[Rfam]
RNA sequence: GUUGUCUGCCUUUCUUGGACGUUUCCUCCCUAAACUCGGCGGUGCCGCAAGGCACCGCCCUUUUUUUGUCCGCA
Number, nucleotide and partner (000 for none) at each position: 001g000002u000003u000004g000005u000006c000007u000008g020009c000010c018011u017012u000013u000014c000015u000016u000017g011018g010019a000020c008021g000022u000023u000024u000025c000026c000027u000028c000029c000030c000031u000032a000033a000034a000035c000036u000037c000038g059039g058040c057041g056042g055043u054044g053045c052046c051047g000048c000049a000050a000051g046052g045053c044054a043055c042056c041057g040058c039059c038060c000061u000062u000063u000064u000065u000066u000067u000068g000069u000070c000071c000072g000073c000074a000
RNA: Makes More Granules Regulator RNA (mmgR)